The record is a 273-nucleotide RNA sequence from Mus spicilegus, which matches "Mason-Pfizer monkey virus packaging signal" in Rfam.

[Rfam]
RNA sequence: UGGUGCCCAAUGUGGGGCAGUAAGAACAAGAGACCCUGUGAGGGACGUUACUGGAAGAAGGGUCAACCGAAAAUUACAAAAUGAAACAAAGGUGAUCAGCAUGGAAACCUGCUGUGUUGAGAUUGGUGAGUCAUAGUAACAAAAAUGGGGCAAGAAAUAAAUCAGCAUAAAGUAUAUAUGGAACAAAUGAGAAAGGCUUUAAAGACAUGAGAAGUAAAGGUAAAAAUUCAGCAUUUAUUGUCAUUUUUUAUUUUAUUAAAGAGUUAUGUCCCU
Numbered sequence: 001u002g003g004u005g006c007c008c009a010a011u012g013u014g015g016g017g018c019a020g021u022a023a024g025a026a027c028a029a030g031a032g033a034c035c036c037u038g039u040g041a042g043g044g045a046c047g048u049u050a051c052u053g054g055a056a057g058a059a060g061g062g063u064c065a066a067c068c069g070a071a072a073a074u075u076a077c078a079a080a081a082u083g084a085a086a087c088a089a090a091g092g093u094g095a096u097c098a099g100c101a102u103g104g105a106a107a108c109c110u111g112c113u114g115u116g117u118u119g120a121g122a123u124u125g126g127u128g129a130g131u132c133a134u135a136g137u138a139a140c141a142a143a144a145a146u147g148g149g150g151c152a153a154g155a156a157a158u159a160a161a162u163c164a165g166c167a168u169a170a171a172g173u174a175u176a177u178a179u180g181g182a183a184c185a186a187a188u189g190a191g192a193a194a195g196g197c198u199u200u201a202a203a204g205a206c207a208u209g210a211g212a213a214g215u216a217a218a219g220g221u222a223a224a225a226a227u228u229c230a231g232c233a234u235u236u237a238u239u240g241u242c243a244u245u246u247u248u249u250a251u252u253u254u255a256u257u258a259a260a261g262a263g264u265u266a267u268g269u270c271c272c273u
Stems, first nucleotide, its partner, number of pairs: 006032001008030001012027002038046002087128002096120002100116005134153001136151002140148001141146001158201003162196002208250008218236004258273001261270002

Rfam's curators write: This family represents a group of sequences that are related to the Mason-Pfizer monkey virus (MPMV) packaging signal. Taxonomically the source falls in Mus (Eukaryota, Dipnotetrapodomorpha, Boreoeutheria, Myomorpha). On this family, see Harrison et al., J Virol 1995: "Secondary structure model of the Mason-Pfizer monkey virus 5' leader sequence: identification of a structural motif common to a variety of retroviruses".